[Rfam]
Nucleotides: 405
Stems, first nucleotide, its partner, number of pairs: 001401010011390001012346007020041009046388003050385005055224004062282001064280002067220005072086005087101001088099004102215002107213002109209002125154002127150009162180006182204001183202008228303004237294005274286003310329008
Number, partner (000 for none) and nucleotide at each position: 001401c002400a003399a004398g005397c006396u007395g008394g009393c010392c011390g012346g013345g014344u015343g016342a017341u018340c019000g020041c021040g022039g023038c024037c025036u026035c027034g028033g029000u030000u031000c032000g033028c034027c035026g036025a037024g038023g039022c040021u041020g042000a043000g044000g045000a046388a047387a048386g049000u050385c051384c052383g053382c054381a055224c056223u057222c058221c059000c060000c061000a062282g063000a064280g065279c066000g067220u068219g069218g070217u071216g072086c073085c074084g075083g076082c077000u078000a079000a080000c081000g082076g083075c084074c085073g086072g087101g088099c089098g090097g091096g092000g093000c094000a095000a096091c097090u098089c099088g100000a101087c102215g103214g104000c105000a106000a107213g108212u109209g110208c111000a112000a113000c114000a115000g116000a117000g118000a119000a120000g121000u122000g123000c124000a125154u126153u127150g128149c129148c130147g131146g132145a133144a134143g135142g136000g137000g138000c139000g140000a141000c142135u143134c144133u145132u146131u147130c148129g149128g150127c151000g152000a153126g154125g155000g156000u157000g158000a159000a160000a161000c162180g163179g164178u165177g166176g167175u168000g169000u170000a171000a172000g173000a174000g175167a176166c177165c178164a179163c180162c181000g182204g183202c184201g185200g186199c187198g188197g189196c190195a191000g192000c193000a194000a195190u196189g197188u198187c199186g200185c201184c202183g203000g204182c205000c206000a207000g208110g209109c210000a211000a212108a213107c214103c215102c216071c217070a218069c219068c220067a221058g222057g223056a224055g225000c226000a227000a228303g229302g230301c231300c232000a233000a234000g235000c236000a237294g238293g239292g240291c241290g242000a243000a244000a245000g246000g247000c248000g249000c250000g251000g252000c253000c254000g255000u256000u257000g258000g259000g260000u261000c262000c263000g264000c265000c266000u267000a268000c269000g270000g271000a272000g273000u274286g275285g276284c277000u278000c279065g280064u281000g282062c283000c284276g285275u286274c287000u288000g289000a290241c291240g292239u293238c294237c295000g296000g297000g298000u299000a300231g301230g302229c303228u304000g305000c306000g307000u308000g309000a310329g311328g312327u313326u314325g315324c316323c317322g318000g319000u320000a321000a322317c323316g324315g325314c326313a327312a328311u329310c330000c331000c332000a333000g334000a335000u336000a337000g338000a339000u340018g341017a342016u343015c344014g345013c346012c347000g348000g349000c350000g351000c352000u353000g354000u355000g356000c357000g358000g359000u360000u361000c362000g363000c364000c365000g366000c367000g368000c369000g370000g371000c372000g373000u374000c375000a376000c377000a378000g379000a380000a381054u382053g383052c384051g385050g386048c387047u388046u389000a390011u391000a392010g393009g394008c395007c396006g397005g398004c399003u400002u401001g402000c403000c404000a405000u